Rfam assigns this 100-nucleotide sequence from Paraburkholderia graminis to the family "Glycine riboswitch aptamer".

RNA sequence: CCGCACGCGUCGGGAGAGCGCGCUGGCUGCUGAAUUCGCAGGCCGCGCCGCCGAAGGGGCACACCCGGAAACUCUCAGGCAAAAGGACCGACCGCGUCGA
Number, nucleotide and partner (000 for none) at each position: 001c000002c000003g000004c000005a000006c096007g095008c094009g092010u091011c090012g089013g088014g000015a000016g000017a000018g000019c000020g048021c047022g046023c045024u000025g000026g000027c000028u000029g000030c000031u000032g000033a000034a000035u000036u000037c000038g000039c000040a000041g000042g000043c000044c000045g023046c022047g021048c020049c000050g080051c079052c078053g076054a075055a000056g000057g074058g073059g072060c000061a000062c000063a000064c000065c000066c000067g000068g000069a000070a000071a000072c059073u058074c057075u054076c053077a000078g052079g051080c050081a000082a000083a000084a000085g000086g000087a000088c013089c012090g011091a010092c009093c000094g008095c007096g006097u000098c000099g000100a000